This 87-nucleotide RNA from Nyssa sinensis belongs to the Rfam family "mir-156 microRNA precursor family".
The literature on the family includes a 2002 paper in Genes Dev by Reinhart et al., "MicroRNAs in plants".
The base pairs follow the family's consensus structure, which was predicted with PFOLD.
Rfam describes the family as follows. This family represents the plant microRNA (miRNA) precursor mir-156.
RNA sequence: GUGACAGAAGAGAGUGAGCACCCAUGGUCUUUUCUGGUAUGAUAUGUCCAUGCUCGAAGCUAUGUGUGCUCACCCUCUAUCUGUCAC
Numbered sequence: 001g002u003g004a005c006a007g008a009a010g011a012g013a014g015u016g017a018g019c020a021c022c023c024a025u026g027g028u029c030u031u032u033u034c035u036g037g038u039a040u041g042a043u044a045u046g047u048c049c050a051u052g053c054u055c056g057a058a059g060c061u062a063u064g065u066g067u068g069c070u071c072a073c074c075c076u077c078u079a080u081c082u083g084u085c086a087c
Base pairs, nucleotide, nucleotide: 001087002086003085004084005083006082007081008080010077011076012075014073015072016071017070018069019068020067021066023064024063025062